[Rfam]
Nucleotides: 150
Stems, first nucleotide, its partner, number of pairs: 004147007017029003031130002033119002035065004060117002069094002099115005121133003
Number, partner (000 for none) and nucleotide at each position: 001000a002000u003000a004147u005146u006145c007144c008143u009142u010141c011000g012000g013000g014000g015000c016000a017029g018028g019027g020000u021000g022000a023000a024000a025000u026000u027019c028018c029017c030000u031130a032129c033119c034118g035065g036064c037063g038062g039000u040000g041000a042000u043000g044000a045000g046000c047000a048000a049000u050000c051000a052000u053000g054000c055000u056000c057000u058000u059000a060117g061116u062038c063037c064036g065035u066000g067000a068000c069094c070093c071000g072000g073000a074000u075000g076000c077000u078000u079000u080000u081000g082000u083000a084000u085000a086000a087000g088000c089000g090000g091000a092000a093070g094069g095000u096000g097000g098000a099115u100114u101113u102112g103111g104000u105000g106000g107000a108000a109000u110000u111103c112102c113101a114100a115099a116061g117060c118034c119033g120000a121133c122132a123131g124000u125000g126000a127000a128000a129032g130031u131123c132122u133121g134000g135000a136000u137000g138000g139000g140000a141010g142009a143008a144007g145006g146005a147004g148000a149000a150000u